About this RNA
This 301-nucleotide RNA sequence from Setaria viridis belongs to the Rfam family "Plant signal recognition particle RNA". The family's consensus secondary structure is taken from published work. Rfam classes the family as a non-coding RNA gene. NCBI's taxonomy places the organism under Eukaryota, Embryophyta, Euphyllophyta, Panicodae, Setaria.

[Rfam]
RNA sequence: ACCGAGCUCGGUUGCGCGGGCUUGUAACCCAAGUGGGGGCAUUAAGGUGAUGUGGAUGUUUGGUGCAGACUCUGGGUCUGGGUCUUGCUGGCCCUGCCCGUUUCAAGUUGGUAGUCGCCUGUGCGGUCCAAGCGAAAGCUCGGGUUUCACUGGACACUAAAGUGGCAGGAAUAGCGUGAGGCUAGCUUUGUUGGCUUCACAGAGCAGUGAUCACUGCCCGCUUCCAAUGGUGGAAGGAUAACAGGCCGCUACAUCAUGGGCUCGACUUGGACCCUGAGGAGCUGGCGGCAAGGACACGAUA
Numbered sequence: 001a002c003c004g005a006g007c008u009c010g011g012u013u014g015c016g017c018g019g020g021c022u023u024g025u026a027a028c029c030c031a032a033g034u035g036g037g038g039g040c041a042u043u044a045a046g047g048u049g050a051u052g053u054g055g056a057u058g059u060u061u062g063g064u065g066c067a068g069a070c071u072c073u074g075g076g077u078c079u080g081g082g083u084c085u086u087g088c089u090g091g092c093c094c095u096g097c098c099c100g101u102u103u104c105a106a107g108u109u110g111g112u113a114g115u116c117g118c119c120u121g122u123g124c125g126g127u128c129c130a131a132g133c134g135a136a137a138g139c140u141c142g143g144g145u146u147u148c149a150c151u152g153g154a155c156a157c158u159a160a161a162g163u164g165g166c167a168g169g170a171a172u173a174g175c176g177u178g179a180g181g182c183u184a185g186c187u188u189u190g191u192u193g194g195c196u197u198c199a200c201a202g203a204g205c206a207g208u209g210a211u212c213a214c215u216g217c218c219c220g221c222u223u224c225c226a227a228u229g230g231u232g233g234a235a236g237g238a239u240a241a242c243a244g245g246c247c248g249c250u251a252c253a254u255c256a257u258g259g260g261c262u263c264g265a266c267u268u269g270g271a272c273c274c275u276g277a278g279g280a281g282c283u284g285g286c287g288g289c290a291a292g293g294a295c296a297c298g299a300u301a
Base pairs, nucleotide, nucleotide: 002039003038004023005022006021007020008019009018010017028037029036030035048301049300051298052297053296057294060291061290062289066284067283068282070278071277072276074274075273076272077271078270079269080263081262082261083260084259085258086253087252089248090247091246093245094244095243096242098237099236101235102234103233104232105231107228108227109226110225111224113222114221115220118153119152121150122149123148125146126145127144128143129142131140132139133138157162164218165217166216167215168214173211175209176208177207182202183201